[Rfam]
RNA sequence: GCCCGGAAGCGGGGGUGCCCGGCGGGAUGCGGGCUGAGACAUACCCUUCGAACCUGAUCCGGUUGAUACCGGCGUAGGGAAGCUUCGUGGUGCCGGCC
Number, nucleotide and partner (000 for none) at each position: 001g000002c000003c000004c000005g000006g086007a085008a084009g083010c082011g047012g046013g045014g044015g000016u041017g034018c033019c032020c031021g030022g000023c000024g000025g000026g000027a000028u000029g000030c021031g020032g019033g018034c017035u000036g000037a000038g000039a000040c000041a016042u000043a000044c014045c013046c012047u011048u000049c000050g000051a000052a000053c078054c077055u076056g075057a000058u000059c072060c071061g070062g069063u000064u000065g000066a000067u000068a000069c062070c061071g060072g059073c000074g000075u056076a055077g054078g053079g000080a000081a000082g010083c009084u008085u007086c006087g000088u000089g000090g000091u000092g000093c000094c000095g000096g000097c000098c000
RNA: TPP riboswitch aptamer (THI element)
Organism: Arenimonas donghaensis